[Rfam]
RNA: mir-676 microRNA precursor family
RNA sequence: AGUGCAUAACUCUUCAACCUGAGGACUCGCAGGGUAAAUGGAAUGCCGUCCUUUGGUUGUUGAGUUGUGCAUU
Numbered sequence: 001a002g003u004g005c006a007u008a009a010c011u012c013u014u015c016a017a018c019c020u021g022a023g024g025a026c027u028c029g030c031a032g033g034g035u036a037a038a039u040g041g042a043a044u045g046c047c048g049u050c051c052u053u054u055g056g057u058u059g060u061u062g063a064g065u066u067g068u069g070c071a072u073u
Stems, first nucleotide, its partner, number of pairs: 002072005010064003015059005022052005029046003